Notes:
A member of the RNA family "SAM (S-adenosyl methionine) riboswitch aptamer" from Microbacterium sp., 115 nucleotides long.

RNA sequence: GGUCAAGAGAGCCACCCACGCCUUCGGACAGUGGUGGCCGGCAACCGCGUCGCCCGACACGGUGCCUUCCGGAGAAGACCUGGGCUGCACCGUCCGGUGCGGCCAAGCGGGCACU
Numbered sequence: 001g002g003u004c005a006a007g008a009g010a011g012c013c014a015c016c017c018a019c020g021c022c023u024u025c026g027g028a029c030a031g032u033g034g035u036g037g038c039c040g041g042c043a044a045c046c047g048c049g050u051c052g053c054c055c056g057a058c059a060c061g062g063u064g065c066c067u068u069c070c071g072g073a074g075a076a077g078a079c080c081u082g083g084g085c086u087g088c089a090c091c092g093u094c095c096g097g098u099g100c101g102g103c104c105a106a107g108c109g110g111g112c113a114c115u
Base pairs, nucleotide, nucleotide: 001080002079003078004077009039011038012037013036014035015034016033021031040066041065042064045062046061047060049058050057083104084103085102086101087100088099089098090097091096
Overview
Its family is annotated with regulation of gene expression and S-adenosylmethionine metabolic process in the Gene Ontology. Pairs were carried over by alignment from the consensus structure, which is taken from published work.